[Rfam]
RNA sequence: CUCUGUAUUAAUACAGGGCGGAAGGAG
Numbered sequence: 001c002u003c004u005g006u007a008u009u010a011a012u013a014c015a016g017g018g019c020g021g022a023a024g025g026a027g
Stems, first nucleotide, its partner, number of pairs: 001018007

L31-Firmicutes ribosomal protein leader: a 27-nucleotide RNA. The sequence is in the family's curated seed alignment. Clan: Ribosomal Protein L31 Leader clan.